[Rfam]
The record is a 59-nucleotide RNA sequence from Actinobacillus indolicus, which matches "L31-Gammaproteobacteria ribosomal protein leader" in Rfam.
The match comes from Rfam's covariance-model search (36 bits).
A reference for the family is Eckert and Weinberg (2020), "Discovery of 20 novel ribosomal leader candidates in bacteria and archaea", BMC Microbiol.
Clan: Ribosomal Protein L31 Leader clan.
The base pairs follow the family's consensus structure, which is taken from published work.
It is annotated as a cis-regulatory leader.
RNA sequence: CAUAUGGUACUAGACAGCAAAGUAGUAUGAUCUAGUGGCGAUAUGGCUUCGUUAGAGGU
Numbered sequence: 001c002a003u004a005u006g007g008u009a010c011u012a013g014a015c016a017g018c019a020a021a022g023u024a025g026u027a028u029g030a031u032c033u034a035g036u037g038g039c040g041a042u043a044u045g046g047c048u049u050c051g052u053u054a055g056a057g058g059u
Stems, first nucleotide, its partner, number of pairs: 001045005007039002011034004015029001